Group II catalytic intron D1-D4-3: a 171-nucleotide RNA sequence from Mucilaginibacter oryzae.
Its family is annotated with Group II intron splicing in the Gene Ontology.
It scores 108 bits against the family's covariance model.
The base pairs follow the family's consensus structure.
RNA sequence: UCGUGGGCGACUGCGAAUCUGAGGGAAGCCGAGGGUAAAUCUCUGGCCUGACGAACAGGAAGCGGAUCAGGCAGUCACGUCAGGGUGAGCUUACAACACAAAUCAGAGCCCUAAACUGUCCGAAAGUCGUGGCUAUAAAUCCGAUAAGUAUAUGGAGAGAAAAUUUGCGUU
Dot-bracket structure: ((((((....))))))...........(.((...((...((((((((.((............((((....(.(.(((((.(.((((..(.((........)).)...))))..............).))))).).)...)))).)).))...))))))....))...)).)